This 167-nucleotide sequence from Paenibacillus solani belongs to the Rfam family "FMN riboswitch aptamer (RFN element)".
RNA sequence: AUGGAUCUUCGGGGUAAGGUGAAAUUCCUAACCGGCGGUGAUGGUUCGUACCUCCUUGGACGAAACUCAGCCCGCGACUCGCUGCGUUCUGGUACUUAUAUGAAUGCAGCGACUGACUUGGUGCAAUUCCAAGGCCGACGGUAAAGUCCGGAUGGGAGAAGAUCAAU
Number, nucleotide and partner (000 for none) at each position: 001a000002u000003g000004g164005a163006u162007c161008u160009u159010c158011g000012g000013g000014g000015u000016a000017a029018g028019g027020u000021g000022a000023a000024a000025u000026u000027c019028c018029u017030a000031a147032c146033c137034g136035g075036c074037g073038g072039u000040g000041a000042u000043g000044g000045u000046u000047c000048g000049u000050a000051c000052c000053u000054c000055c000056u000057u000058g000059g000060a000061c000062g000063a000064a000065a000066c000067u000068c000069a000070g135071c134072c038073c037074g036075c035076g000077a000078c000079u112080c111081g110082c109083u108084g107085c106086g105087u104088u103089c102090u000091g000092g000093u000094a000095c000096u000097u000098a000099u000100a000101u000102g089103a088104a087105u086106g085107c084108a083109g082110c081111g080112a079113c000114u000115g000116a000117c133118u132119u131120g130121g129122u000123g000124c000125a000126a000127u000128u000129c121130c120131a119132a118133g117134g071135c070136c034137g033138a000139c150140g149141g148142u000143a000144a000145a000146g032147u031148c141149c140150g139151g000152a000153u000154g000155g000156g000157a000158g010159a009160a008161g007162a006163u005164c004165a000166a000167u000
Taxonomically the source falls in Paenibacillus (Bacteria, Bacillati, Bacillota, Caryophanales).